[Rfam]
RNA: mir-130 microRNA precursor family
RNA sequence: CGCUCGUCCACUGCCCUUUUUAUGUUGUACUACUAGUGAUAACAGAAAAAAGCAGUGCAAUAUUAAAAGGGCAUUGGCCGGCG
Numbered sequence: 001c002g003c004u005c006g007u008c009c010a011c012u013g014c015c016c017u018u019u020u021u022a023u024g025u026u027g028u029a030c031u032a033c034u035a036g037u038g039a040u041a042a043c044a045g046a047a048a049a050a051a052g053c054a055g056u057g058c059a060a061u062a063u064u065a066a067a068a069g070g071g072c073a074u075u076g077g078c079c080g081g082c083g
Stems, first nucleotide, its partner, number of pairs: 003083001005080002008077003013072008023062009